[Rfam]
RNA sequence: CACAAUUGAAUAGGCUCCUCAAGGGCGGUCGGCUCAUCCCCUCGUGAAAGGGGGUGAGAGGGAUGUCAACUCAUGAUGUGGUUUCGCUCAUGUUGCAGUUUGGCCUGUUUUUGCUUGCAGGGCUUACGCUGAUCGUGACGAUCAUCAAGUAUUGGUUUGACAUGCACAAUAAACAGAAAUAGAUCGCCCCAUGAGUUUGGCCUCAGGCGAUCUAUUUCGCUACCAAUUUGAGCCGACCCCCUUGAAGGGAAUCAGUUGUGCAAAACGACCGUGGGUGCUACCAACACCUGCG
Numbered sequence: 001c002a003c004a005a006u007u008g009a010a011u012a013g014g015c016u017c018c019u020c021a022a023g024g025g026c027g028g029u030c031g032g033c034u035c036a037u038c039c040c041c042u043c044g045u046g047a048a049a050g051g052g053g054g055u056g057a058g059a060g061g062g063a064u065g066u067c068a069a070c071u072c073a074u075g076a077u078g079u080g081g082u083u084u085c086g087c088u089c090a091u092g093u094u095g096c097a098g099u100u101u102g103g104c105c106u107g108u109u110u111u112u113g114c115u116u117g118c119a120g121g122g123c124u125u126a127c128g129c130u131g132a133u134c135g136u137g138a139c140g141a142u143c144a145u146c147a148a149g150u151a152u153u154g155g156u157u158u159g160a161c162a163u164g165c166a167c168a169a170u171a172a173a174c175a176g177a178a179a180u181a182g183a184u185c186g187c188c189c190c191a192u193g194a195g196u197u198u199g200g201c202c203u204c205a206g207g208c209g210a211u212c213u214a215u216u217u218c219g220c221u222a223c224c225a226a227u228u229u230g231a232g233c234c235g236a237c238c239c240c241c242u243u244g245a246a247g248g249g250a251a252u253c254a255g256u257u258g259u260g261c262a263a264a265a266c267g268a269c270c271g272u273g274g275g276u277g278c279u280a281c282c283a284a285c286a287c288c289u290g291c292g
Base pairs, nucleotide, nucleotide: 001260002259003258004257005256007254008253009252011250013234014233015232016231017230018195019194020193021192023190024189025188027185028184029183030182034057035056036055038053039052040051041050042049065161066160067159068158069157071155078093079092080091102153103152206218207217238249239248240247270292271291272290273289274288275287276286277285279283
RNA: BsrG